Notes:
Acido-Lenti-1 RNA: a 47-nucleotide RNA from Caldithrix abyssi. It is annotated as a small RNA.

RNA sequence: CCCACCGUUGAAACGGCGGGCUAUUUUCAAACGUCCCUGACGGGACG
Numbered sequence: 001c002c003c004a005c006c007g008u009u010g011a012a013a014c015g016g017c018g019g020g021c022u023a024u025u026u027u028c029a030a031a032c033g034u035c036c037c038u039g040a041c042g043g044g045a046c047g
Stems, first nucleotide, its partner, number of pairs: 001020003005016004033046005